[Rfam]
RNA sequence: AGGACCCACUGCUUAUGGGUCCUGCAUCAGGACCCAGGUCUCUUGGGUCAUGCGUCGAGACCCAAUCCUUUUGGGUCCUUUGUCAGGACCUAAGGUUCUUAGGUCUU
Numbered sequence: 001a002g003g004a005c006c007c008a009c010u011g012c013u014u015a016u017g018g019g020u021c022c023u024g025c026a027u028c029a030g031g032a033c034c035c036a037g038g039u040c041u042c043u044u045g046g047g048u049c050a051u052g053c054g055u056c057g058a059g060a061c062c063c064a065a066u067c068c069u070u071u072u073g074g075g076u077c078c079u080u081u082g083u084c085a086g087g088a089c090c091u092a093a094g095g096u097u098c099u100u101a102g103g104u105c106u107u
Stems, first nucleotide, its partner, number of pairs: 001107006008100001013095002016092009029079009043065007

Shown here is a 107-nucleotide RNA from Populus tomentosa, a member of the family "MIR6450 microRNA precursor family". NCBI's taxonomy places the organism under Eukaryota, Magnoliopsida, Pentapetalae, rosids, Populus. Pairs were carried over by alignment from the consensus structure, which was predicted with RNAalifold.